Background: This 102-nucleotide RNA sequence from Rhinopithecus roxellana belongs to the Rfam family "Y RNA". By type it is a non-coding RNA gene. A reference for the family is Teunissen et al. (2000), "Conserved features of Y RNAs: a comparison of experimentally derived secondary structures", Nucleic Acids Res. The family has 104 seed sequences and 26,986 matches in Rfam 15.1. The match comes from Rfam's covariance-model search (58 bits).
RNA sequence: GGCUGAUCUGAGUGCAGUCGUUUUUACAACUAAUUGAUCACAACCAGUUACAAAUUGCUUUAUUCUUUCUCCACUCACACUGCUUCGCUUGACUAGCCUUUA
Numbered sequence: 001g002g003c004u005g006a007u008c009u010g011a012g013u014g015c016a017g018u019c020g021u022u023u024u025u026a027c028a029a030c031u032a033a034u035u036g037a038u039c040a041c042a043a044c045c046a047g048u049u050a051c052a053a054a055u056u057g058c059u060u061u062a063u064u065c066u067u068u069c070u071c072c073a074c075u076c077a078c079a080c081u082g083c084u085u086c087g088c089u090u091g092a093c094u095a096g097c098c099u100u101u102a
Stems, first nucleotide, its partner, number of pairs: 001098005007092002010090002014086001016081003020078002028064002032060002